Record summary:
Small Cajal body specific RNA 1: a 165-nucleotide RNA sequence from Nothoprocta perdicaria. Rfam links the family to the GO terms nucleolus, RNA processing and Cajal body. scaRNAs are a specific class of small nuclear RNAs which localise to the Cajal bodies and guide the modification of RNA polymerase II transcribed spliceosomal RNAs U1, U2, U4, U5 and U12. ACA35 belong to the H/ACA box class of guide RNAs as it has the predicted hairpin-hinge-hairpin-tail structure, conserved H/ACA-box motifs and is found associated with GAR1. It is predicted to guide pseudouridylation of the U2 spliceosomal snRNA at residue U89. On this family, see Darzacq et al., EMBO J 2002: "Cajal body-specific small nuclear RNAs: a novel class of 2'-O-methylation and pseudouridylation guide RNAs". The base pairs follow the family's consensus structure, which was predicted with RNAalifold. NCBI's taxonomy places the organism under Eukaryota, Opisthokonta, Archelosauria, Tinamidae, Nothoprocta. The family has 29 seed sequences and 715 matches in Rfam 15.1.
RNA sequence: AAGCACUUGAUACUAACCGAGCCAUCCGUGGCCCAGGUCUUGCACAGAGAUCUGAGGUUACGCUUGUGAUUGCUGGGUCUGAAAAGUGCGACAUUAAACCAGCCAUGCAGCGUUUAAGCUCAGUGUAUGAAGGAAAACACUGGGUUAUAACUCAGCGGCACAAAA
Numbered sequence: 001a002a003g004c005a006c007u008u009g010a011u012a013c014u015a016a017c018c019g020a021g022c023c024a025u026c027c028g029u030g031g032c033c034c035a036g037g038u039c040u041u042g043c044a045c046a047g048a049g050a051u052c053u054g055a056g057g058u059u060a061c062g063c064u065u066g067u068g069a070u071u072g073c074u075g076g077g078u079c080u081g082a083a084a085a086g087u088g089c090g091a092c093a094u095u096a097a098a099c100c101a102g103c104c105a106u107g108c109a110g111c112g113u114u115u116a117a118g119c120u121c122a123g124u125g126u127a128u129g130a131a132g133g134a135a136a137a138c139a140c141u142g143g144g145u146u147a148u149a150a151c152u153c154a155g156c157g158g159c160a161c162a163a164a165a
Base pairs, nucleotide, nucleotide: 003089004088005087006086007085008084016078017077018076020074021073022072024070025069026068027062028061029060030059032057033056034054036052037051038050039049040048041047102159103158104157123138124137126135128133140155141154142153143152144151145150